Rfam assigns this 85-nucleotide RNA to the family "L4-Archaeoglobi ribosomal protein leades".

RNA sequence: CUGACCGAUACGCAGGGUCGACGUUCGUGCAACGAGCCCGCUCCCGCUGCUUCCCUCAAAGAGUAGAAGGAUGCGUUAUUGUCAG
Numbered sequence: 001c002u003g004a005c006c007g008a009u010a011c012g013c014a015g016g017g018u019c020g021a022c023g024u025u026c027g028u029g030c031a032a033c034g035a036g037c038c039c040g041c042u043c044c045c046g047c048u049g050c051u052u053c054c055c056u057c058a059a060a061g062a063g064u065a066g067a068a069g070g071a072u073g074c075g076u077u078a079u080u081g082u083c084a085g
Stems, first nucleotide, its partner, number of pairs: 001085005010076004015039003022034004042071003047066006